[Rfam]
RNA sequence: CUUGUACUUUGUUGUACAUCGCUCUGGAUAAGAGCGUCUGCUAAAUGCCUGUCA
Numbered sequence: 001c002u003u004g005u006a007c008u009u010u011g012u013u014g015u016a017c018a019u020c021g022c023u024c025u026g027g028a029u030a031a032g033a034g035c036g037u038c039u040g041c042u043a044a045a046u047g048c049c050u051g052u053c054a
Stems, first nucleotide, its partner, number of pairs: 013043001014041003020036006
A member of the RNA family "UnaL2 LINE 3' element" from Conger conger, 54 nucleotides long. The source organism's lineage runs through Eukaryota, Eumetazoa, Euteleostomi, Elopocephala and Conger. By type it is a cis-regulatory element. Rfam describes the family as follows. The eel long interspersed element (LINE) UnaL2 and its partner short interspersed element (SINE) share a conserved 3' tail containing a stem-loop that is critical for their retrotransposition. Presumably, the first step of retrotransposition is the recognition of their 3' tails by UnaL2-encoded reverse transcriptase. The solution structure of a 17-nucleotide RNA derived from the 3' tail of UnaL2 was determined by NMR. Its family is annotated with transposition, RNA-mediated in the Gene Ontology. The base pairs follow the family's consensus structure, which is taken from published work.